[Rfam]
Nucleotides: 137
Stems, first nucleotide, its partner, number of pairs: 001060003025045005077129004090116005
Number, partner (000 for none) and nucleotide at each position: 001060u002059g003058u004000u005000u006000a007000a008000u009000c010000a011000a012000g013000g014000a015000u016000c017000a018000u019000u020000g021000a022000a023000c024000a025045g026044g027043c028042a029041c030000u031000g032000u033000u034000g035000a036000u037000c038000a039000g040000g041029g042028u043027g044026u045025c046000c047000a048000g049000a050000a051000a052000u053000u054000g055000u056000u057000a058003g059002c060001a061000u062000g063000g064000c065000u066000a067000a068000a069000u070000u071000g072000a073000g074000a075000c076000a077129c078128a079127g080126g081000u082000c083000a084000u085000a086000c087000u088000u089000c090116u091115a092114u093113c094112a095000c096000a097000g098000u099000a100000u101000a102000u103000g104000u105000u106000u107000u108000a109000c110000a111000c112094u113093g114092g115091u116090g117000a118000c119000a120000a121000c122000g123000a124000g125000a126080c127079c128078u129077g130000g131000a132000a133000c134000a135000a136000u137000u
The record is a 137-nucleotide RNA from Carlito syrichta, which matches "Small nucleolar RNA SNORA1" in Rfam.
From the family's description: ACA1 is a member of the H/ACA class of snoRNA that guide the sites of modification of uridines to pseudouridines.
Rfam links the family to the GO terms RNA processing and nucleolus.
Pairs were carried over by alignment from the consensus structure, which was predicted with PFOLD.
The match comes from Rfam's covariance-model search (89 bits).